[Rfam]
RNA: mir-145 microRNA precursor family
Organism: Quiscalus mexicanus
RNA sequence: GCCGUGUCCCCGGGGUCCAGUUUUCCCAGGAAUCCCUCAGGCUCUAGGAUGGGGAUUCCUGGAAAUACUGUUCUUGGGGCCGCGGC
Numbered sequence: 001g002c003c004g005u006g007u008c009c010c011c012g013g014g015g016u017c018c019a020g021u022u023u024u025c026c027c028a029g030g031a032a033u034c035c036c037u038c039a040g041g042c043u044c045u046a047g048g049a050u051g052g053g054g055a056u057u058c059c060u061g062g063a064a065a066u067a068c069u070g071u072u073c074u075u076g077g078g079g080c081c082g083c084g085g086c
Stems, first nucleotide, its partner, number of pairs: 018070004023065002026062012